Overview: The family of this 110-nucleotide sequence from Tepidibacillus fermentans is "PyrR binding site". Rfam describes the family as follows. This family represents the PyrR binding site and terminator structure. This RNA structure is found upstream of a variety of genes involved in pyrimidine biosynthesis and transport. The alignment also includes a portion of the antiterminator structure. The source organism's lineage runs through Bacteria, Bacilli, Caryophanales, Bacillaceae and Tepidibacillus. The family's RNA type in Rfam is cis-regulatory element.
Nucleotides: 110
Base pairs, nucleotide, nucleotide: 003037005035006034007033008032009031013030014029015028016027017026018025042073043072044071046069047068048067050066051065052064054062055061074105075104076103078101079100080099081098082097083096084095085094086093
Number, partner (000 for none) and nucleotide at each position: 001000a002000g003037u004000u005035c006034c007033u008032u009031u010000a011000a012000g013030u014029c015028a016027g017026u018025c019000c020000a021000g022000a023000g024000a025018g026017g027016c028015u029014g030013a031009a032008a033007a034006g035005g036000u037003g038000a039000u040000c041000g042073g043072a044071u045000c046069a047068u048067a049000a050066g051065g052064g053000a054062u055061a056000a057000u058000g059000u060000a061055u062054a063000g064052u065051c066050c067048u068047a069046u070000c071044a072043u073042c074105a075104a076103a077000a078101g079100c080099u081098u082097u083096u084095g085094c086093c087000u088000c089000u090000c091000a092000u093086g094085g095084c096083a097082a098081a099080a100079g101078c102000a103076u104075u105074u106000u107000u108000u109000a110000u